[Rfam]
RNA sequence: GAUCAUGCUUUUCCACAGCUUUCUUGAACUUUCUUUGUUUUCCAUCAUAAAAGAAUUAGCUAAUAGCUAGAUAUAUGUAUAUAUAUGUGUGUAUGUAUAUACCAUGGAAGCUCAAGAAAGCUGUGGGAGAACAUGAUGA
Numbered sequence: 001g002a003u004c005a006u007g008c009u010u011u012u013c014c015a016c017a018g019c020u021u022u023c024u025u026g027a028a029c030u031u032u033c034u035u036u037g038u039u040u041u042c043c044a045u046c047a048u049a050a051a052a053g054a055a056u057u058a059g060c061u062a063a064u065a066g067c068u069a070g071a072u073a074u075a076u077g078u079a080u081a082u083a084u085a086u087g088u089g090u091g092u093a094u095g096u097a098u099a100u101a102c103c104a105u106g107g108a109a110g111c112u113c114a115a116g117a118a119a120g121c122u123g124u125g126g127g128a129g130a131a132c133a134u135g136a137u138g139a
Stems, first nucleotide, its partner, number of pairs: 003136005013126003017122006024115004029110005
The record is a 139-nucleotide RNA from Gossypium anomalum, which matches "MIR396 microRNA precursor family" in Rfam. Rfam links the family to the GO terms miRNA-mediated post-transcriptional gene silencing and RISC complex. On this family, see Jones-Rhoades and Bartel, Mol Cell 2004: "Computational identification of plant microRNAs and their targets, including a stress-induced miRNA". The match comes from Rfam's covariance-model search (89 bits).